The family of this 64-nucleotide RNA is "DUF3800-II RNA".
Rfam classes the family as a small RNA.
Pairs were carried over by alignment from the consensus structure, which is taken from published work.
RNA sequence: AGAACAAGGCACCCGGGACAAAUCCCAGAGGGAAAGUUAGUGAUAACUACCGGACUGUCUGACC
Numbered sequence: 001a002g003a004a005c006a007a008g009g010c011a012c013c014c015g016g017g018a019c020a021a022a023u024c025c026c027a028g029a030g031g032g033a034a035a036g037u038u039a040g041u042g043a044u045a046a047c048u049a050c051c052g053g054a055c056u057g058u059c060u061g062a063c064c
Base pairs, nucleotide, nucleotide: 007060008059009058010057013053014052015051016050023033024032025031026030035048036047037046038045039044